Rfam assigns this 170-nucleotide RNA sequence from Myotis lucifugus to the family "U1 spliceosomal RNA". The base pairs follow the family's consensus structure, which is taken from published work. Clan: U1 clan. The family's RNA type in Rfam is spliceosomal small nuclear RNA. Lineage of the source: Eukaryota > Eumetazoa > Bilateria > Chiroptera > Myotis.
RNA sequence: AUAUUUACCUAGCAGGGGAGAUAAAAUGAUCAAGAAGGUGGUUUUCUCAGGGCGAGGCUUAUCCAUUGCAUUCCGGAUGUGCUGACCCCUGCGAUUUCCCCAAAUGUGGGAAACUCGACUGCAUAAUUUGUGGUAGUAAGUGGGGGGGAGGGGGGGAUUUUUACCUCUUU
Numbered sequence: 001a002u003a004u005u006u007a008c009c010u011a012g013c014a015g016g017g018g019a020g021a022u023a024a025a026a027u028g029a030u031c032a033a034g035a036a037g038g039u040g041g042u043u044u045u046c047u048c049a050g051g052g053c054g055a056g057g058c059u060u061a062u063c064c065a066u067u068g069c070a071u072u073c074c075g076g077a078u079g080u081g082c083u084g085a086c087c088c089c090u091g092c093g094a095u096u097u098c099c100c101c102a103a104a105u106g107u108g109g110g111a112a113a114c115u116c117g118a119c120u121g122c123a124u125a126a127u128u129u130g131u132g133g134u135a136g137u138a139a140g141u142g143g144g145g146g147g148g149a150g151g152g153g154g155g156g157a158u159u160u161u162u163a164c165c166u167c168u169u170u
Stems, first nucleotide, its partner, number of pairs: 012122004016048006023042001026039002049090004054086001056083003060079005092117003095113003099109002138169003142165001144164001